RNA: RNase MRP
Organism: Chrysemys picta
RNA sequence: GGAUGUUCUGAAGACCUGCUCUCUAGGCCACAUACUGGUCAGGACGCUGGUUCCUCCAAGGGCUCCCGAACCCGCUUAGGGGAAAGUCCCCGGACCCCAGGCAGACAGUGCCGCUCGCUCCACAGCGUGCAGUGACCCUUCUCGCCGGCUCACAUUCUCGCCGCCAAGAAGCCCUUCGGGCUGAGCGGGUGGGCGUGGGAUGGGCUGCGCGUCACUCCUACAGGAAUGCAGGUAGUGCGCAGGCGUGUUUCCCGCCACCGCCGCACCAACAGAACGGGGCUCAUUCUCAGAACGCC
Dot-bracket structure: .(.((((((((..((((((..(((((((.............................................)))))))....[[.[[[[........((((.....))))((.(((......))).)).((......((((((...((((........((((......((((...))))...)))).)))).))))))...))......................)))))).(((((......................))))).........]]]]]].....)))))))).)